The record is a 99-nucleotide sequence from Microbacterium pseudoresistens, which matches "Glycine riboswitch aptamer" in Rfam. A search with the family's covariance model found it, with a score of 45 bits. This family represents the bacterial glycine riboswitch.
RNA sequence: GCCGCUCUGGAAAGCGAUCUCGAGCGAAGCGAACGAGAUCCGCCGAUGGUGAAAGCCCGAUCAGGGCGAAACUCUCAGGCCCAUGACAGAGGGGGAGUU
Numbered sequence: 001g002c003c004g005c006u007c008u009g010g011a012a013a014g015c016g017a018u019c020u021c022g023a024g025c026g027a028a029g030c031g032a033a034c035g036a037g038a039u040c041c042g043c044c045g046a047u048g049g050u051g052a053a054a055g056c057c058c059g060a061u062c063a064g065g066g067c068g069a070a071a072c073u074c075u076c077a078g079g080c081c082c083a084u085g086a087c088a089g090a091g092g093g094g095g096a097g098u099u
Base pairs, nucleotide, nucleotide: 002094003093005091006090007089008088009087016040017039018038019037020036021035022034042080043079044078045076046075049074051072055067056066